[Rfam]
RNA sequence: AAUAGGAAAAUGAUAAAUCAGAUUUUUCCUCCCGAUUUUUAACGUUUUUAGUUGGAUUUGAAUUUUUUGAGGAGAAAAAAAGCUAAAAAUCGAGAGGAAAAAUCUGAUUUGUUAUUUUCCUAUU
Numbered sequence: 001a002a003u004a005g006g007a008a009a010a011u012g013a014u015a016a017a018u019c020a021g022a023u024u025u026u027u028c029c030u031c032c033c034g035a036u037u038u039u040u041a042a043c044g045u046u047u048u049u050a051g052u053u054g055g056a057u058u059u060g061a062a063u064u065u066u067u068u069g070a071g072g073a074g075a076a077a078a079a080a081a082g083c084u085a086a087a088a089a090u091c092g093a094g095a096g097g098a099a100a101a102a103u104c105u106g107a108u109u110u111g112u113u114a115u116u117u118u119c120c121u122a123u124u
Stems, first nucleotide, its partner, number of pairs: 001124027029096003033092007041084001045080004
Shown here is a 124-nucleotide sequence from Gossypium schwendimanii, a member of the family "MIR7504 microRNA precursor family".